[Rfam]
RNA sequence: GCUCUGCCGCCGCCCAUUUCCCGUUCACACUGAUGGCAGAGACGGGGGACCCAAUCUUUGCGGGCCUCCACCUUGGAAGUCCUUGGGGUUAAACCAAAGCGCGGGCAUUUUUUUGCCCGGCGCCUGGCCGGAUGCUCUCAUCCGUUCCCGACAGCUCACCUCGCAGGCGUAGAGAGGUCCU
Number, nucleotide and partner (000 for none) at each position: 001g000002c000003u000004c000005u000006g000007c000008c000009g000010c000011c169012g168013c167014c166015c000016a000017u000018u041019u040020c039021c000022c000023g000024u000025u000026c000027a000028c000029a000030c000031u000032g000033a000034u000035g000036g000037c000038a000039g020040a019041g018042a000043c163044g162045g161046g160047g159048g000049a000050c000051c000052c085053a084054a000055u000056c000057u000058u000059u000060g000061c000062g000063g000064g000065c000066c000067u000068c000069c000070a000071c000072c000073u000074u000075g000076g000077a000078a000079g000080u000081c000082c000083u000084u053085g052086g149087g148088g147089u000090u000091a000092a000093a000094c127095c126096a125097a000098a000099g000100c000101g000102c000103g000104g000105g000106c000107a000108u000109u000110u000111u000112u000113u000114u000115g000116c000117c000118c000119g000120g000121c000122g000123c000124c000125u096126g095127g094128c000129c000130g143131g142132a141133u140134g000135c000136u000137c000138u000139c000140a133141u132142c131143c130144g000145u000146u000147c088148c087149c086150g000151a000152c000153a000154g000155c000156u000157c000158a000159c047160c046161u045162c044163g043164c000165a000166g014167g013168c012169g011170u000171a000172g000173a000174g000175a000176g000177g000178u000179c000180c000181u000
RNA: c-di-AMP riboswitch aptamer (ydaO/yuaA leader)